[Rfam]
RNA sequence: GGUGGAGAAUUCCUAAGGGAUCGCAUGAUCCAAUGAAUAAAAAAGUGAGAAUUUUAACUCAUUUAAUGGAGGAAUCAGUAGAUCAAUGCGAUCCCUUUGGAACCCUCCGC
Number, nucleotide and partner (000 for none) at each position: 001g000002g110003u109004g108005g107006a106007g000008a000009a000010u102011u101012c100013c099014u000015a097016a096017g095018g094019g093020a092021u091022c000023g089024c088025a087026u085027g084028a083029u082030c081031c000032a000033a000034u000035g076036a000037a000038u000039a000040a000041a000042a000043a000044a000045g000046u000047g000048a000049g000050a000051a000052u000053u000054u000055u000056a000057a000058c000059u000060c000061a000062u000063u000064u000065a000066a000067u000068g000069g000070a000071g000072g000073a000074a000075u000076c035077a000078g000079u000080a000081g030082a029083u028084c027085a026086a000087u025088g024089c023090g000091a021092u020093c019094c018095c017096u016097u015098u000099g013100g012101a011102a010103c000104c000105c000106u006107c005108c004109g003110c002
RNA: mir-393 microRNA precursor family
Organism: Manihot esculenta